RNA sequence: GGGGGCGACAUGGCUUCGACGCCGAUGACAACCUCCUAGGUGCAUGCCGAGAGUGUGAUGUAUCUCGUAAAUCCAAUAUCACGAUUAAAUAGUCGCAAACGACGAAAACUACGCUCAAGGUGCCCUGGCAGCCUAACAGCUGUUAGUGGUUAGCCUGGCCCCAACGCGAUGUGCCUAUCUAUCGCCGCGGGGAUAUGAGCUAAAGCGGAUAGGAUCGCGAUUGACUUUGUUCUCGCGUCAAUUGCUAAAUAUUAGAGGAAUCGCGCUACAGUAUCCUGCUCGUCGGAGGCUGUAGUGUUAAAUUAAAAGACGAACCUAAGCAUGUAGAGCCGAAGAGCGAGUGUCGGCGGACGCGGGUUCGAUCCCCGCCGCCUCCACCA
Numbered sequence: 001g002g003g004g005g006c007g008a009c010a011u012g013g014c015u016u017c018g019a020c021g022c023c024g025a026u027g028a029c030a031a032c033c034u035c036c037u038a039g040g041u042g043c044a045u046g047c048c049g050a051g052a053g054u055g056u057g058a059u060g061u062a063u064c065u066c067g068u069a070a071a072u073c074c075a076a077u078a079u080c081a082c083g084a085u086u087a088a089a090u091a092g093u094c095g096c097a098a099a100c101g102a103c104g105a106a107a108a109c110u111a112c113g114c115u116c117a118a119g120g121u122g123c124c125c126u127g128g129c130a131g132c133c134u135a136a137c138a139g140c141u142g143u144u145a146g147u148g149g150u151u152a153g154c155c156u157g158g159c160c161c162c163a164a165c166g167c168g169a170u171g172u173g174c175c176u177a178u179c180u181a182u183c184g185c186c187g188c189g190g191g192g193a194u195a196u197g198a199g200c201u202a203a204a205g206c207g208g209a210u211a212g213g214a215u216c217g218c219g220a221u222u223g224a225c226u227u228u229g230u231u232c233u234c235g236c237g238u239c240a241a242u243u244g245c246u247a248a249a250u251a252u253u254a255g256a257g258g259a260a261u262c263g264c265g266c267u268a269c270a271g272u273a274u275c276c277u278g279c280u281c282g283u284c285g286g287a288g289g290c291u292g293u294a295g296u297g298u299u300a301a302a303u304u305a306a307a308a309g310a311c312g313a314a315c316c317u318a319a320g321c322a323u324g325u326a327g328a329g330c331c332g333a334a335g336a337g338c339g340a341g342u343g344u345c346g347g348c349g350g351a352c353g354c355g356g357g358u359u360c361g362a363u364c365c366c367c368g369c370c371g372c373c374u375c376c377a378c379c380a
Stems, first nucleotide, its partner, number of pairs: 001376007020349008033337003037333001039331003043324005048067005055082007125146008162192001168182001174208002178205001215247001217245007229261005263298010274287003278316001280314001282311003353369005
RNA: transfer-messenger RNA
Organism: Pistricoccus aurantiacus